[Rfam]
RNA: Alphaproteobacteria transfer-messenger RNA
Organism: Croceibacterium salegens
RNA sequence: UCACUUCACAUUAAUCGUCGUUUGCUUAUAUGGAACUCGCCGGUUUCGGCCGGCUAUGGCGAUAAACUGCGGUGUGCAAUAGGCACAGCGGACCCGGGGGCAGUACCCGGCGGCUCCACCAUAAAGCCCUGUUUCGGCAGGGUUUCCUGACGGGGCCGAACCAGGAUCGACGUGUGUUGAAAAGCACUGUUUUCGCCCGGGCUGAGUAACCCGUUAAAGGCUCAAAACACACAAGUGCCAACGACAACGAAGCACUUGCUCUCGCUGCGUAAUUCUAGGGCCUAGCGGCCUGACCUUACAAAGCUUUGAGCACGGUUCGGACCGAACCGGGUAACAGAAUCGGAAACC
Numbered sequence: 001u002c003a004c005u006u007c008a009c010a011u012u013a014a015u016c017g018u019c020g021u022u023u024g025c026u027u028a029u030a031u032g033g034a035a036c037u038c039g040c041c042g043g044u045u046u047c048g049g050c051c052g053g054c055u056a057u058g059g060c061g062a063u064a065a066a067c068u069g070c071g072g073u074g075u076g077c078a079a080u081a082g083g084c085a086c087a088g089c090g091g092a093c094c095c096g097g098g099g100g101c102a103g104u105a106c107c108c109g110g111c112g113g114c115u116c117c118a119c120c121a122u123a124a125a126g127c128c129c130u131g132u133u134u135c136g137g138c139a140g141g142g143u144u145u146c147c148u149g150a151c152g153g154g155g156c157c158g159a160a161c162c163a164g165g166a167u168c169g170a171c172g173u174g175u176g177u178u179g180a181a182a183a184g185c186a187c188u189g190u191u192u193u194c195g196c197c198c199g200g201g202c203u204g205a206g207u208a209a210c211c212c213g214u215u216a217a218a219g220g221c222u223c224a225a226a227a228c229a230c231a232c233a234a235g236u237g238c239c240a241a242c243g244a245c246a247a248c249g250a251a252g253c254a255c256u257u258g259c260u261c262u263c264g265c266u267g268c269g270u271a272a273u274u275c276u277a278g279g280g281c282c283u284a285g286c287g288g289c290c291u292g293a294c295c296u297u298a299c300a301a302a303g304c305u306u307u308g309a310g311c312a313c314g315g316u317u318c319g320g321a322c323c324g325a326a327c328c329g330g331g332u333a334a335c336a337g338a339a340u341c342g343g344a345a346a347c348c
Base pairs, nucleotide, nucleotide: 039054040053041052042051043050058197059196060195061194062193069190070189071188072187073186074185075184084176085175086174088173089172090171094110095109096108097107098106111158112157113156114155115154116153117152198213199212200211201210203224204223205222313329314328315327316326322342324340